This 53-nucleotide sequence belongs to the Rfam family "nhaA-I RNA". Acidobacteria, Alphaproteobacteria, Betaproteobacteria and Gammaproteobacteria, Verrucomicrobia, cand. division NC10. It is one of the family's seed sequences. The base pairs follow the family's consensus structure, which is taken from published work.

RNA sequence: GGGUGUCCGCCGCCACUGCGGCGAACAGGCAUUGCGCUGGUCGGGCCGCCGCG
Numbered sequence: 001g002g003g004u005g006u007c008c009g010c011c012g013c014c015a016c017u018g019c020g021g022c023g024a025a026c027a028g029g030c031a032u033u034g035c036g037c038u039g040g041u042c043g044g045g046c047c048g049c050c051g052c053g
Stems, first nucleotide, its partner, number of pairs: 005026002008023005035053003039050003